Source information: Rfam assigns this 78-nucleotide RNA from Esox lucius to the family "Small nucleolar RNA SNORD83". A reference for the family is Jady and Kiss (2000), "Characterisation of the U83 and U84 small nucleolar RNAs: two novel 2'-O-ribose methylation guide RNAs that lack complementarities to ribosomal RNAs", Nucleic Acids Res.
RNA sequence: GCCACGUGAUGAUCUCAUAGACAACAUGAGCGCUUUGUGCAGAGAUGACACAUUAUCUAUCACCCAUGACUGAUGGCU
Numbered sequence: 001g002c003c004a005c006g007u008g009a010u011g012a013u014c015u016c017a018u019a020g021a022c023a024a025c026a027u028g029a030g031c032g033c034u035u036u037g038u039g040c041a042g043a044g045a046u047g048a049c050a051c052a053u054u055a056u057c058u059a060u061c062a063c064c065c066a067u068g069a070c071u072g073a074u075g076g077c078u
Stems, first nucleotide, its partner, number of pairs: 001077004030040004

Record summary
The source organism's lineage runs through Eukaryota, Bilateria, Vertebrata, Esocidae and Esox. The match comes from Rfam's covariance-model search (67 bits). Its family is annotated with RNA processing and nucleolus in the Gene Ontology.